[Rfam]
RNA: malK-I RNA
RNA sequence: UCCAUUGGCGCGCGUCCACUCCACUUCAUGGGCGGCGUACAUUUCAAAAGGAGGAUCAGCCACCUGUUGGACUCACGGUGCGGCAGCGUGGAGACCUGCCGUAAUGCGGAGCGUUCCUUUGCGGACGCCUGCGAGGCGAUCGUGCGUGGGCAGGGGUCGUCAGAGUCAAGCUUAUGUCU
Numbered sequence: 001u002c003c004a005u006u007g008g009c010g011c012g013c014g015u016c017c018a019c020u021c022c023a024c025u026u027c028a029u030g031g032g033c034g035g036c037g038u039a040c041a042u043u044u045c046a047a048a049a050g051g052a053g054g055a056u057c058a059g060c061c062a063c064c065u066g067u068u069g070g071a072c073u074c075a076c077g078g079u080g081c082g083g084c085a086g087c088g089u090g091g092a093g094a095c096c097u098g099c100c101g102u103a104a105u106g107c108g109g110a111g112c113g114u115u116c117c118u119u120u121g122c123g124g125a126c127g128c129c130u131g132c133g134a135g136g137c138g139a140u141c142g143u144g145c146g147u148g149g150g151c152a153g154g155g156g157u158c159g160u161c162a163g164a165g166u167c168a169a170g171c172u173u174a175u176g177u178c179u
Base pairs, nucleotide, nucleotide: 008038009037010036011035013034014033015032016031017030018029064078065077066076067075068169070167071166072165073164074163079103080102081101082100083099084098085097086096088095089094106132107131108130109129111128112127113126114125135161136160137159138158139157140156141155143152144151145150